Xanthomonadaceae sRNA sX13: a 115-nucleotide sequence from Pseudoxanthomonas dokdonensis.

RNA sequence: AAGGUCUGUCGCUGGAUCUCUCCCAUCCCCUGGAGUGAUCUCUGGAACGGCAACCCCUCCCCAGGUUCCGUUCCUCUGGCCCCGCCGACCUCCCCCUGGUCUGCGGGGCUUUUUA
Numbered sequence: 001a002a003g004g005u006c007u008g009u010c011g012c013u014g015g016a017u018c019u020c021u022c023c024c025a026u027c028c029c030c031u032g033g034a035g036u037g038a039u040c041u042c043u044g045g046a047a048c049g050g051c052a053a054c055c056c057c058u059c060c061c062c063a064g065g066u067u068c069c070g071u072u073c074c075u076c077u078g079g080c081c082c083c084g085c086c087g088a089c090c091u092c093c094c095c096c097u098g099g100u101c102u103g104c105g106g107g108g109c110u111u112u113u114u115a
Stems, first nucleotide, its partner, number of pairs: 004013001006011001014041005020035004044074007052067004078110008087101004
Dot-bracket structure: ...(.(....).)(((((.((((........)))).)))))..(((((((.((((........)))))))))))...((((((((.((((.......)))).)))))))).....
It scores 101 bits against the family's covariance model. For this family Rfam cites "Genome-wide transcriptome analysis of the plant pathogen Xanthomonas identifies sRNAs with putative virulence functions" (Schmidtke et al., Nucleic Acids Res, 2011).